RNA: c-di-AMP riboswitch aptamer (ydaO/yuaA leader)
Organism: Metabacillus sediminilitoris
Nucleotides: 148
Base pairs, nucleotide, nucleotide: 011134012133013132014131018027019026020025028129029128030127031126032125033124038065039064066114067113068112074088075087076086077085091108092107093106094105
Number, partner (000 for none) and nucleotide at each position: 001000u002000a003000u004000a005000u006000c007000a008000a009000a010000u011134c012133g013132c014131u015000u016000a017000a018027u019026c020025c021000u022000u023000u024000a025020g026019g027018a028129a029128c030127g031126g032125g033124g034000g035000a036000c037000c038065c039064a040000a041000u042000u043000u044000a045000u046000g047000u048000g049000g050000a051000u052000c053000u054000u055000u056000u057000a058000u059000c060000c061000u062000c063000u064039u065038g066114g067113g068112g069000u070000g071000a072000a073000u074088c075087c076086u077085a078000u079000u080000u081000u082000a083000a084000g085077u086076a087075g088074g089000u090000a091108a092107g093106g094105a095000u096000a097000c098000u099000c100000u101000u102000u103000u104000g105094u106093c107092c108091u109000g110000a111000a112068c113067c114066c115000g116000a117000c118000a119000g120000c121000u122000a123000a124033c125032u126031c127030c128029g129028u130000a131014a132013g133012c134011g135000u136000u137000a138000u139000g140000a141000g142000a143000g144000g145000u146000c147000g148000g